[Rfam]
RNA sequence: CCCUGAAUUCUUUGCAAGUCGCUUUGGAUAAAAGCGUCUGCUAAAUGACUAAAA
Dot-bracket structure: ............((((...((((((.....))))))..))).)...........
Numbered sequence: 001c002c003c004u005g006a007a008u009u010c011u012u013u014g015c016a017a018g019u020c021g022c023u024u025u026g027g028a029u030a031a032a033a034g035c036g037u038c039u040g041c042u043a044a045a046u047g048a049c050u051a052a053a054a
Stems, first nucleotide, its partner, number of pairs: 013043001014041003020036006
Annotation: Rfam assigns this 54-nucleotide RNA sequence from Triplophysa rosa to the family "UnaL2 LINE 3' element". From the family's description: The eel long interspersed element (LINE) UnaL2 and its partner short interspersed element (SINE) share a conserved 3' tail containing a stem-loop that is critical for their retrotransposition. Presumably, the first step of retrotransposition is the recognition of their 3' tails by UnaL2-encoded reverse transcriptase. The family's consensus secondary structure is taken from published work. Gene Ontology term of the family: transposition, RNA-mediated. A search with the family's covariance model found it, with a score of 62 bits.